RNA sequence: AUAAAAAAAAGCCUGCAGAAAUAAUCUGCAGGCCCUUUUUGCUUUCAAUUAAGAAAAACAAAAAGGCAAAGGGAGAGGAGAAACCGGAGGAAGAACUUAUGGGGAAACGUAAGUCUUCUCCGUGU
Numbered sequence: 001a002u003a004a005a006a007a008a009a010a011g012c013c014u015g016c017a018g019a020a021a022u023a024a025u026c027u028g029c030a031g032g033c034c035c036u037u038u039u040u041g042c043u044u045u046c047a048a049u050u051a052a053g054a055a056a057a058a059c060a061a062a063a064a065g066g067c068a069a070a071g072g073g074a075g076a077g078g079a080g081a082a083a084c085c086g087g088a089g090g091a092a093g094a095a096c097u098u099a100u101g102g103g104g105a106a107a108c109g110u111a112a113g114u115c116u117u118c119u120c121c122g123u124g125u
Base pairs, nucleotide, nucleotide: 011033012032013031014030015029016028017027018026019025034073035072036071037070038069043056044055045054046053085122086121087120088119090118091117092116093115095114096113097112098111099110
RNA: ylbH leader
Organism: Aquibacillus halophilus